[Rfam]
RNA sequence: AAAGUUGUUGCAGUUAAAACGCUCGUAGUUGGAAUUAGGAUUGCUAAUUUUUUGUCAUCAUGUGACGAAUCAUUAUGAAUCCCUAUGUUAGUUGUUUUCAGUUCUCUUUAUUGAGUGCUGUGAAUGACUACAAAUUUUACUUUGAAAAAAUUAGAGUGCUCAAAGCAGGCCGUAAGUGUCUGGAUGUUGUUGCAUGGGAUAAUGGAAUAGGACCUCUGUUCUAUCUGUUGGUUGAUGAACUUGAGGUAAUGAUUAAGAGGGACAGUCGGGGGCAUUCAUACUGCAGCGUUAGAGGUGGAAUUCUUGGAUCGCUGUAUGAUGAACAACUGCGAAAGCAUUUGCCAAGAAUGUUUUCAUUAAUCAAGAACGAAAGUCAGAGGCGCGAAGACGAUCAGAUACCGUCGUAGUUCUGACCGUAAACCAUGUCGACUAACGAUUCGCUCAGUUCCAACUAAUAAUCGGUCUGAGUGAGGAGUUUACGGGAAACCAAAGUUUUUGGAUUCCGGGGGAAGUAUGGUUGCAAAGCUGAAACUUAAAGGAAU
Numbered sequence: 001a002a003a004g005u006u007g008u009u010g011c012a013g014u015u016a017a018a019a020c021g022c023u024c025g026u027a028g029u030u031g032g033a034a035u036u037a038g039g040a041u042u043g044c045u046a047a048u049u050u051u052u053u054g055u056c057a058u059c060a061u062g063u064g065a066c067g068a069a070u071c072a073u074u075a076u077g078a079a080u081c082c083c084u085a086u087g088u089u090a091g092u093u094g095u096u097u098u099c100a101g102u103u104c105u106c107u108u109u110a111u112u113g114a115g116u117g118c119u120g121u122g123a124a125u126g127a128c129u130a131c132a133a134a135u136u137u138u139a140c141u142u143u144g145a146a147a148a149a150a151u152u153a154g155a156g157u158g159c160u161c162a163a164a165g166c167a168g169g170c171c172g173u174a175a176g177u178g179u180c181u182g183g184a185u186g187u188u189g190u191u192g193c194a195u196g197g198g199a200u201a202a203u204g205g206a207a208u209a210g211g212a213c214c215u216c217u218g219u220u221c222u223a224u225c226u227g228u229u230g231g232u233u234g235a236u237g238a239a240c241u242u243g244a245g246g247u248a249a250u251g252a253u254u255a256a257g258a259g260g261g262a263c264a265g266u267c268g269g270g271g272g273c274a275u276u277c278a279u280a281c282u283g284c285a286g287c288g289u290u291a292g293a294g295g296u297g298g299a300a301u302u303c304u305u306g307g308a309u310c311g312c313u314g315u316a317u318g319a320u321g322a323a324c325a326a327c328u329g330c331g332a333a334a335g336c337a338u339u340u341g342c343c344a345a346g347a348a349u350g351u352u353u354u355c356a357u358u359a360a361u362c363a364a365g366a367a368c369g370a371a372a373g374u375c376a377g378a379g380g381c382g383c384g385a386a387g388a389c390g391a392u393c394a395g396a397u398a399c400c401g402u403c404g405u406a407g408u409u410c411u412g413a414c415c416g417u418a419a420a421c422c423a424u425g426u427c428g429a430c431u432a433a434c435g436a437u438u439c440g441c442u443c444a445g446u447u448c449c450a451a452c453u454a455a456u457a458a459u460c461g462g463u464c465u466g467a468g469u470g471a472g473g474a475g476u477u478u479a480c481g482g483g484a485a486a487c488c489a490a491a492g493u494u495u496u497u498g499g500a501u502u503c504c505g506g507g508g509g510a511a512g513u514a515u516g517g518u519u520g521c522a523a524a525g526c527u528g529a530a531a532c533u534u535a536a537a538g539g540a541a542u
Base pairs, nucleotide, nucleotide: 011505013503019502021368023366024365028361029360030359259355260354261353262352263350264349266347267346271343272342273341274340277321278320282316283315284314285313286312287311288310292303293302294301329336330335373414374413375412376411377410378409382408383407387403388402389401390400425501426500427499428494429493430492432477433476434475437472438471439470440469441468442467443466444465448462481488482487507534508533509532516527517526518525519524
RNA: Eukaryotic small subunit ribosomal RNA, nucleotides 628 to 1169